[Rfam]
Rfam assigns this 77-nucleotide RNA sequence from Parnassius apollo to the family "Mammalian CPEB3 ribozyme". A reference for the family is Salehi-Ashtiani et al. (2006), "A genomewide search for ribozymes reveals an HDV-like sequence in the human CPEB3 gene", Science. Taxonomically the source falls in Parnassius (Eukaryota, Ecdysozoa, Mandibulata, Dicondylia).

RNA sequence: AGUUUACAAUUGGGGGUCAUUGUAGAAGCGUGCUCGUCGCGACCCCUGCCAGCCCUUUUCAGGGCUGCAAUUCUACA
Numbered sequence: 001a002g003u004u005u006a007c008a009a010u011u012g013g014g015g016g017u018c019a020u021u022g023u024a025g026a027a028g029c030g031u032g033c034u035c036g037u038c039g040c041g042a043c044c045c046c047u048g049c050c051a052g053c054c055c056u057u058u059u060c061a062g063g064g065c066u067g068c069a070a071u072u073c074u075a076c077a
Stems, first nucleotide, its partner, number of pairs: 013046006021077007028040003050067007